This 155-nucleotide sequence from Populus tomentosa belongs to the Rfam family "MIR2912 microRNA precursor family". Pairs were carried over by alignment from the consensus structure, which was predicted with RNAalifold. Its family is annotated with miRNA-mediated post-transcriptional gene silencing and RISC complex in the Gene Ontology. Taxonomically the source falls in Populus (Eukaryota, Embryophyta, Spermatophyta, Mesangiospermae).
[Rfam]
RNA sequence: UCUAGAACUCGAGAUAUGGGCUGAACACUCAACAGUUUUUGGGCUAUAGGAUUGAUUCAGACUUCUCCGUUGUUGCUAUAAUUUGAACUUGAAAACAAUCUUUUUGAAUCUUGAACUCCCAUGAAAGUUUUAGGCCUAUAUUUUAGCUUUCCAUC
Numbered sequence: 001u002c003u004a005g006a007a008c009u010c011g012a013g014a015u016a017u018g019g020g021c022u023g024a025a026c027a028c029u030c031a032a033c034a035g036u037u038u039u040u041g042g043g044c045u046a047u048a049g050g051a052u053u054g055a056u057u058c059a060g061a062c063u064u065c066u067c068c069g070u071u072g073u074u075g076c077u078a079u080a081a082u083u084u085g086a087a088c089u090u091g092a093a094a095a096c097a098a099u100c101u102u103u104u105u106g107a108a109u110c111u112u113g114a115a116c117u118c119c120c121a122u123g124a125a126a127g128u129u130u131u132a133g134g135c136c137u138a139u140a141u142u143u144u145a146g147c148u149u150u151c152c153a154u155c
Base pairs, nucleotide, nucleotide: 003153005151006150007149008146009145011144012143013142014141015140016139017138018137019136020135021133022132023131024130025129027128028127029126035122036121041119042118043117045115048112049111050110051109052108054105055104060099063097072088073087074086